RNA sequence: AUCAAUUGCUUCUAGGGUUCCGAUUUCUAACGGUGGGCGUGGAAAUGACUGGUCCGAGAGAAGCAGGCCAACCGACAGCGAUUAAAGAUUUAAUCUAAAACUGGGUGGCUACACGGCGGGAGAAAAGCCCGGGAGGG
Numbered sequence: 001a002u003c004a005a006u007u008g009c010u011u012c013u014a015g016g017g018u019u020c021c022g023a024u025u026u027c028u029a030a031c032g033g034u035g036g037g038c039g040u041g042g043a044a045a046u047g048a049c050u051g052g053u054c055c056g057a058g059a060g061a062a063g064c065a066g067g068c069c070a071a072c073c074g075a076c077a078g079c080g081a082u083u084a085a086a087g088a089u090u091u092a093a094u095c096u097a098a099a100a101c102u103g104g105g106u107g108g109c110u111a112c113a114c115g116g117c118g119g120g121a122g123a124a125a126a127g128c129c130c131g132g133g134a135g136g137g
Stems, first nucleotide, its partner, number of pairs: 007065006015055002020052002022049001023046006066110005072104002112132001114135001118130003
The record is a 137-nucleotide RNA sequence from Desertifilum tharense, which matches "Guanidine-I riboswitch aptamer" in Rfam. The base pairs follow the family's consensus structure. The organism belongs to Desertifilum tharense, within Bacteria.